[Rfam]
Shown here is a 178-nucleotide sequence from Erinaceus europaeus, a member of the family "Small nucleolar RNA SNORA81". The family's RNA type in Rfam is H/ACA-box small nucleolar RNA. NCBI's taxonomy places the organism under Eukaryota, Chordata, Tetrapoda, Erinaceidae, Erinaceus. A reference for the family is Gu et al. (2005), "A novel experimental approach for systematic identification of box H/ACA snoRNAs from eukaryotes", Nucleic Acids Res.
RNA sequence: GCCUUCUUGUAUAAGCACUGUGCUAAAAUUACAGAAACUUUGAUUUCAUCUUGGUUUUUGUAAUAAUGCUAGCAGAGUACACACAAGAAGAAAAGUACUGCACUAAAUUAGAAAAGACUAGGGUGGACCUCUUUCUUAAUGUCCAGUGUCCUUUGUCUUAAGAUUUGGUGCAAUACUG
Number, nucleotide and partner (000 for none) at each position: 001g000002c000003c000004u000005u000006c000007u000008u000009g000010u000011a000012u000013a000014a000015g000016c000017a000018c077019u076020g000021u074022g073023c072024u071025a070026a000027a000028a067029u066030u065031a064032c000033a000034g058035a057036a000037a055038c054039u053040u000041u000042g050043a049044u048045u000046u000047c000048a044049u043050c042051u000052u000053g039054g038055u037056u000057u035058u034059u000060g000061u000062a000063a000064u031065a030066a029067u028068g000069c000070u025071a024072g023073c022074a021075g000076a019077g018078u000079a000080c000081a000082c000083a000084c000085a000086a000087g000088a000089a000090g000091a000092a000093a000094a000095g000096u000097a000098c000099u172100g171101c170102a169103c168104u167105a166106a165107a164108u000109u000110a000111g000112a000113a000114a000115a000116g000117a000118c000119u000120a149121g000122g147123g000124u145125g144126g143127a142128c000129c000130u000131c000132u000133u000134u000135c000136u000137u000138a000139a000140u000141g000142u127143c126144c125145a124146g000147u122148g000149u120150c000151c000152u000153u000154u000155g000156u000157c000158u000159u000160a000161a000162g000163a000164u107165u106166u105167g104168g103169u102170g101171c100172a099173a000174u000175a000176c000177u000178g000
The base pairs follow the family's consensus structure, which was predicted with WAR.